A member of the RNA family "c-di-AMP riboswitch aptamer (ydaO/yuaA leader)" from Streptomyces kanasensis, 174 nucleotides long.
RNA sequence: ACGCUUCCAGCGCCGUGGGCAGGAGCGGGGGACCCAAGGUAAGCGCCGGGGCCGGGCCGUCGAAGGACGGCCGGGACCGGCUAGGGGUGAAGCCGUGCGCCACCCAGCGCACGGCCGGGCACUCACCAGGCCCGAACCCGACAGCUCACCUCGUAGGCGUCGGUGAGGAGACAC
Numbered sequence: 001a002c003g004c005u006u007c008c009a010g011c012g013c014c015g016u017g018g019g020c021a022g023g024a025g026c027g028g029g030g031g032a033c034c035c036a037a038g039g040u041a042a043g044c045g046c047c048g049g050g051g052c053c054g055g056g057c058c059g060u061c062g063a064a065g066g067a068c069g070g071c072c073g074g075g076a077c078c079g080g081c082u083a084g085g086g087g088u089g090a091a092g093c094c095g096u097g098c099g100c101c102a103c104c105c106a107g108c109g110c111a112c113g114g115c116c117g118g119g120c121a122c123u124c125a126c127c128a129g130g131c132c133c134g135a136a137c138c139c140g141a142c143a144g145c146u147c148a149c150c151u152c153g154u155a156g157g158c159g160u161c162g163g164u165g166a167g168g169a170g171a172c173a174c
Stems, first nucleotide, its partner, number of pairs: 002159004006024003025154006035084001085139003093114007117133004

Annotation:
A search with the family's covariance model found it, with a score of 51 bits.